[Rfam]
RNA: Repression of heat shock gene expression (ROSE) element
RNA sequence: CCGGAUGCGAGUUUCGGUCCGGUGACCCUGAGGGCACCGGCUCUCCGGUGUUCUUGUGCUCAAAUUGCUCAAUGGAGGAUUUGGAUAUGAGGA
Number, nucleotide and partner (000 for none) at each position: 001c022002c021003g020004g019005a018006u017007g000008c016009g015010a000011g000012u000013u000014u000015c009016g008017g006018u005019c004020c003021g002022g001023u000024g000025a000026c000027c000028c000029u000030g000031a052032g000033g000034g051035c050036a049037c048038c047039g046040g045041c000042u000043c000044u000045c040046c039047g038048g037049u036050g035051u034052u031053c091054u090055u089056g088057u087058g086059c000060u084061c083062a082063a081064a080065u079066u078067g000068c077069u076070c075071a000072a000073u000074g000075g070076a069077g068078g066079a065080u064081u063082u062083g061084g060085a000086u058087a057088u056089g055090a054091g053092g000093a000